[Rfam]
SL1 RNA: a 103-nucleotide RNA from Loa loa. Rfam classes the family as a non-coding RNA gene. Rfam describes the family as follows. This family represents the SL1 RNA. SL1 is commonly located in the spacer region between 5S-rRNA genes where it is involved in trans-splicing. Trans-splicing is a form of RNA processing. Gene Ontology term of the family: mRNA trans splicing, via spliceosome.
RNA sequence: GGUUUAUUACCCAAAUUUGAGGUAAUUGAAUGUUUCGCCCAGAGUUUGGCUCUAGUGGCUUGAAGUAAAUUUUGGAAACGUCCUGCCAAUUUUGUGGGACAAC
Dot-bracket structure: ..(((((((((.........)))))).)))..(((((((.................)))..))))..............(((((((.......)))))))...
Numbered sequence: 001g002g003u004u005u006a007u008u009a010c011c012c013a014a015a016u017u018u019g020a021g022g023u024a025a026u027u028g029a030a031u032g033u034u035u036c037g038c039c040c041a042g043a044g045u046u047u048g049g050c051u052c053u054a055g056u057g058g059c060u061u062g063a064a065g066u067a068a069a070u071u072u073u074g075g076a077a078a079c080g081u082c083c084u085g086c087c088a089a090u091u092u093u094g095u096g097g098g099a100c101a102a103c
Stems, first nucleotide, its partner, number of pairs: 003030003006026006033065004037059003080100007
A reference for the family is Dassanayake et al. (2001), "Trans-spliced leader RNA, 5S-rRNA genes and novel variant orphan spliced-leader of the lymphatic filarial nematode Wuchereria bancrofti, and a sensitive polymerase chain reaction based detection assay", Gene. The base pairs follow the family's consensus structure, which is taken from published work.